[Rfam]
RNA sequence: CCUGCCUGUGCAGGACGGGAUGUGAGUCGCGGACCGCGCGACUUGAACCACGCA
Numbered sequence: 001c002c003u004g005c006c007u008g009u010g011c012a013g014g015a016c017g018g019g020a021u022g023u024g025a026g027u028c029g030c031g032g033a034c035c036g037c038g039c040g041a042c043u044u045g046a047a048c049c050a051c052g053c054a
Base pairs, nucleotide, nucleotide: 001014002013003012004011005010017049018048024044025043026042027041028040029039030038031037